[Rfam]
RNA sequence: AAAUCAUAAAACAAUGGAAGCCCUGCCUCUCAUCCAUCCUUGCAGUUCCGAGACUGCGCCAGUGUGAUUUAUUUUUUCAUUGCUUGA
Number, nucleotide and partner (000 for none) at each position: 001a000002a000003a000004u000005c000006a000007u000008a000009a000010a000011a000012c000013a000014a000015u000016g000017g000018a000019a000020g000021c000022c000023c000024u000025g000026c000027c000028u000029c000030u000031c000032a000033u000034c000035c066036a065037u000038c000039c062040u061041u058042g057043c056044a055045g054046u053047u052048c000049c000050g000051a000052g047053a046054c045055u044056g043057c042058g041059c000060c000061a040062g039063u000064g000065u036066g035067a000068u000069u000070u000071a000072u000073u000074u000075u000076u000077u000078c000079a000080u000081u000082g000083c000084u000085u000086g000087a000
The record is an 87-nucleotide RNA sequence from [Anoxybacillus] calidus, which matches "BsrC" in Rfam. The 301 nucleotide sequence from Kouji Nakamura has been trimmed to a highly conserved ~85 nucleotide long core to form this family. On this family, see Saito et al., Gene 2008: "Novel small RNA-encoding genes in the intergenic regions of Bacillus subtilis". It scores 78 bits against the family's covariance model.